Shown here is a 106-nucleotide RNA from Lactobacillus acidophilus, a member of the family "PyrR binding site". About the family: This family represents the PyrR binding site and terminator structure. The organism belongs to Lactobacillus acidophilus, within Bacteria. It is annotated as a cis-regulatory element.
RNA sequence: AUGUCCUUUAAAAUUAGUCCCGUGAGGCUAGCAAGGCAGGCUUAAAUAAAAGUUUUGACUUUACUGAAAGCUCCUAGUCUCAAAGUAGACUGGGAGCUUUUUUCAU
Number, nucleotide and partner (000 for none) at each position: 001a000002u000003g000004u000005c036006c035007u034008u033009u000010a000011a000012a000013a000014u031015u030016a029017g028018u027019c026020c000021c000022g000023u000024g000025a000026g019027g018028c017029u016030a015031g014032c000033a008034a007035g006036g005037c000038a000039g000040g000041c000042u000043u000044a000045a000046a000047u000048a000049a062050a061051a060052g059053u058054u000055u000056u000057g000058a053059c052060u051061u050062u049063a000064c000065u000066g101067a100068a099069a098070g097071c096072u095073c094074c093075u092076a091077g090078u089079c088080u000081c000082a000083a000084a000085g000086u000087a000088g079089a078090c077091u076092g075093g074094g073095a072096g071097c070098u069099u068100u067101u066102u000103u000104c000105a000106u000